[Rfam]
RNA: MIR6145 microRNA precursor family
RNA sequence: AUAAAAGGGGUUCUCGCAUGAACCCUACCCUAUAUAUAUAUAUAUAUAGGGUAGGGUUCAUGCGAGAACCCCUUUUAUU
Numbered sequence: 001a002u003a004a005a006a007g008g009g010g011u012u013c014u015c016g017c018a019u020g021a022a023c024c025c026u027a028c029c030c031u032a033u034a035u036a037u038a039u040a041u042a043u044a045u046a047u048a049g050g051g052u053a054g055g056g057u058u059c060a061u062g063c064g065a066g067a068a069c070c071c072c073u074u075u076u077a078u079u
Stems, first nucleotide, its partner, number of pairs: 001078008010069010021058010